[Rfam]
RNA: glmS glucosamine-6-phosphate activated ribozyme aptamer
RNA sequence: GAACAAAAACAAGCGCCAGGGCUCCCGUAUCUAGUAACGCGGCGGGAGUCGACGAGGGAGACGUUUAUCGAGAUUUUCGGCGGGUGCGUCUCGGCUUCGGGCGGUCGAUAGGGCGGCGACAAAACCCGGCGGCGACGCCGGGAACAAAACGCCGUUCGGCCCGGGCA
Numbered sequence: 001g002a003a004c005a006a007a008a009a010c011a012a013g014c015g016c017c018a019g020g021g022c023u024c025c026c027g028u029a030u031c032u033a034g035u036a037a038c039g040c041g042g043c044g045g046g047a048g049u050c051g052a053c054g055a056g057g058g059a060g061a062c063g064u065u066u067a068u069c070g071a072g073a074u075u076u077u078c079g080g081c082g083g084g085u086g087c088g089u090c091u092c093g094g095c096u097u098c099g100g101g102c103g104g105u106c107g108a109u110a111g112g113g114c115g116g117c118g119a120c121a122a123a124a125c126c127c128g129g130c131g132g133c134g135a136c137g138c139c140g141g142g143a144a145c146a147a148a149a150c151g152c153c154g155u156u157c158g159g160c161c162c163g164g165g166c167a
Stems, first nucleotide, its partner, number of pairs: 020050008059091005068080004092107005111157007125142007